Overview:
The family of this 100-nucleotide RNA from Lentibacillus halodurans is "Purine riboswitch aptamer". The match comes from Rfam's covariance-model search (85 bits). Gene Ontology term of the family: purine nucleobase biosynthetic process.

Nucleotides: 100
Stems, first nucleotide, its partner, number of pairs: 019085007029049007058076006
Number, partner (000 for none) and nucleotide at each position: 001000a002000g003000c004000a005000a006000u007000u008000a009000a010000a011000u012000a013000c014000g015000a016000u017000a018000a019085c020084c021083u022082c023081a024080u025079a026000u027000a028000u029049u030048u031047u032046c033045g034044g035043g036000g037000a038000u039000a040000u041000g042000g043035c044034c045033u046032g047031a048030a049029a050000g051000u052000u053000u054000c055000u056000a057000c058076c059075u060074g061073g062072c063071a064000c065000c066000g067000u068000a069000a070000a071063u072062g073061c074060c075059g076058g077000a078000c079025u080024a081023u082022g083021a084020g085019g086000g087000a088000g089000g090000a091000u092000g093000g094000a095000a096000c097000g098000g099000u100000g